[Rfam]
RNA sequence: UGUCUCCUGCGGUGUUCGACGAACGCUCUAAACCCUUGAGCCUAUUUGCAACCCCCCGGGAGCCAAAGCUGGUUGGGCGUGCAAGCCCGCGUUGUCGGCGGGAAGCCCGAAAGUCAGAUUGCGGCACCCACUUGAGACCUCGUCUCAAGGUACCGAGCGAAUGACGGCACAGGCGGGAGUCAC
Number, nucleotide and partner (000 for none) at each position: 001u000002g181003u000004c179005u178006c177007c176008u175009g174010c173011g000012g170013u169014g168015u167016u000017c166018g165019a000020c000021g000022a000023a000024c000025g000026c000027u000028c000029u000030a000031a000032a151033c000034c150035c149036u000037u147038g146039a145040g144041c000042c142043u000044a000045u000046u000047u000048g000049c000050a000051a000052c000053c000054c000055c000056c000057c000058g129059g128060g127061a000062g125063c124064c123065a000066a000067a120068g000069c000070u000071g000072g000073u118074u113075g000076g000077g000078c000079g000080u000081g106082c105083a000084a000085g000086c102087c101088c100089g099090c098091g000092u000093u000094g000095u000096c000097g000098g090099c089100g088101g087102g086103a000104a000105g082106c081107c000108c000109g000110a000111a000112a000113g074114u000115c000116a000117g000118a073119u000120u067121g000122c000123g064124g063125c062126a000127c060128c059129c058130a000131c000132u000133u000134g000135a000136g000137a000138c000139c000140u000141c000142g042143u000144c040145u039146c038147a037148a000149g035150g034151u032152a000153c000154c000155g000156a000157g000158c000159g000160a000161a000162u000163g000164a000165c018166g017167g015168c014169a013170c012171a000172g000173g010174c009175g008176g007177g006178a005179g004180u000181c002182a000183c000

Shown here is a 183-nucleotide sequence from Hydrocarboniphaga effusa, a member of the family "6S / SsrS RNA". The match comes from Rfam's covariance-model search (74 bits). By type it is a non-coding RNA gene. Pairs were carried over by alignment from the consensus structure, which is taken from published work.